This 122-nucleotide RNA from Drosophila willistoni belongs to the Rfam family "R2 RNA element". From the family's description: This family represents the 3' UTR region of the R2 retrotransposable element. This family is known to interact with the R2-encoded reverse transcriptase in a reaction known as target primed reverse transcription (TPRT). NCBI's taxonomy places the organism under Eukaryota, Bilateria, Muscomorpha, Eremoneura, Sophophora. For this family Rfam cites "Secondary structure models of the 3' untranslated regions of diverse R2 RNAs" (Ruschak et al., RNA, 2004). Pairs were carried over by alignment from the consensus structure, which is taken from published work.

[Rfam]
RNA sequence: UAAGAGGAGGUUUUAGUACGUAGGCGCUGUGGAACUUUAUAGUUCUGAUGAUGCAGUGAAUCGUGCAUGCGGCAAUUCACCCGUAGUAAGGUGACCGUAUCUUUCGAAGAUUUCCUCCCUCU
Numbered sequence: 001u002a003a004g005a006g007g008a009g010g011u012u013u014u015a016g017u018a019c020g021u022a023g024g025c026g027c028u029g030u031g032g033a034a035c036u037u038u039a040u041a042g043u044u045c046u047g048a049u050g051a052u053g054c055a056g057u058g059a060a061u062c063g064u065g066c067a068u069g070c071g072g073c074a075a076u077u078c079a080c081c082c083g084u085a086g087u088a089a090g091g092u093g094a095c096c097g098u099a100u101c102u103u104u105c106g107a108a109g110a111u112u113u114c115c116u117c118c119c120u121c122u
Base pairs, nucleotide, nucleotide: 003122004121005120006119007118008116009115010114016066017065018064019063020062025058026057027056028055029054030053031046032045033044034043035042068099069098070097071096072095